[Rfam]
RNA sequence: CGGCGUUCUCAGGGCGGGGCGGAAUUCCCCACCGGCGGUAAGCAGGCCCUCCUGCAAGCCCGCGAGCGCUCCCCUCAGGGAGGUCAGCAGACCCGGUGCAACUCCGGGGCCGACGGUCACAGUCCGGAUGAAAGAGAGCAGGU
Numbered sequence: 001c002g003g004c005g006u007u008c009u010c011a012g013g014g015c016g017g018g019g020c021g022g023a024a025u026u027c028c029c030c031a032c033c034g035g036c037g038g039u040a041a042g043c044a045g046g047c048c049c050u051c052c053u054g055c056a057a058g059c060c061c062g063c064g065a066g067c068g069c070u071c072c073c074c075u076c077a078g079g080g081a082g083g084u085c086a087g088c089a090g091a092c093c094c095g096g097u098g099c100a101a102c103u104c105c106g107g108g109g110c111c112g113a114c115g116g117u118c119a120c121a122g123u124c125c126g127g128a129u130g131a132a133a134g135a136g137a138g139c140a141g142g143u
Stems, first nucleotide, its partner, number of pairs: 005139006017029003031123002033112002035063004058110002066088002092108005114126003

Source information:
The family of this 143-nucleotide sequence from Pseudooceanicola albus is "FMN riboswitch aptamer (RFN element)". The organism belongs to Pseudooceanicola, within Bacteria. Rfam describes the family as follows. The RFN element is a highly conserved domain that is found frequently in the 5'-untranslated regions of prokaryotic mRNAs that encode for flavin mononucleotide (FMN) biosynthesis and transport proteins. Pairs were carried over by alignment from the consensus structure, which is taken from published work.